[Rfam]
RNA sequence: CUACUGAUAUCGUAAGGUAUUGGGAUGGGGUGGCAGAAGUCAGCAGAAGCCAUAGUCGUUACCGUAACUGGGUAACGAAGGGC
Numbered sequence: 001c002u003a004c005u006g007a008u009a010u011c012g013u014a015a016g017g018u019a020u021u022g023g024g025a026u027g028g029g030g031u032g033g034c035a036g037a038a039g040u041c042a043g044c045a046g047a048a049g050c051c052a053u054a055g056u057c058g059u060u061a062c063c064g065u066a067a068c069u070g071g072g073u074a075a076c077g078a079a080g081g082g083c
Stems, first nucleotide, its partner, number of pairs: 001027001004023008040047002049083003058076006